mir-19 microRNA precursor family: a 76-nucleotide RNA from Salarias fasciatus. Gene Ontology terms of the family: RISC complex and miRNA-mediated post-transcriptional gene silencing. A reference for the family is Mourelatos et al. (2002), "miRNPs: a novel class of ribonucleoproteins containing numerous microRNAs", Genes Dev. Pairs were carried over by alignment from the consensus structure, which was predicted with RNAalifold. Clan: mir-19 clan. The organism belongs to Salarias, within Eukaryota.
RNA sequence: GCUCUCUGUUAGUUUUGCAUAGUUGCGCUGCAAGAAACAGGUAGUUGUGCAAAUCUAUGCAAAACUGAUGGCGUCC
Numbered sequence: 001g002c003u004c005u006c007u008g009u010u011a012g013u014u015u016u017g018c019a020u021a022g023u024u025g026c027g028c029u030g031c032a033a034g035a036a037a038c039a040g041g042u043a044g045u046u047g048u049g050c051a052a053a054u055c056u057a058u059g060c061a062a063a064a065c066u067g068a069u070g071g072c073g074u075c076c
Stems, first nucleotide, its partner, number of pairs: 004073001006071014023052006030045002